RNA sequence: UGCAAAUGAUGUCUUCUCACGAUGGUCUUCCAAGCCGUGAAAGCGGUCUUGACGACAAGUCCUUUAUGGAAAUGCUGAUGCAGCUGU
Numbered sequence: 001u002g003c004a005a006a007u008g009a010u011g012u013c014u015u016c017u018c019a020c021g022a023u024g025g026u027c028u029u030c031c032a033a034g035c036c037g038u039g040a041a042a043g044c045g046g047u048c049u050u051g052a053c054g055a056c057a058a059g060u061c062c063u064u065u066a067u068g069g070a071a072a073u074g075c076u077g078a079u080g081c082a083g084c085u086g087u
Stems, first nucleotide, its partner, number of pairs: 001082004

Source information
A member of the RNA family "Small nucleolar RNA SNORD35" from Polypterus senegalus, 87 nucleotides long. A search with the family's covariance model found it, with a score of 47 bits. U35 is a C/D box snoRNA located in intron 6 of ribosomal protein L13A and intron 3 of ribosomal protein S11 in humans and at homologous positions in mouse and chicken ribosomal protein genes. The family is grouped with related families in Rfam's "SNORD35 clan". The family has 8 seed sequences and 1,842 matches in Rfam 15.1.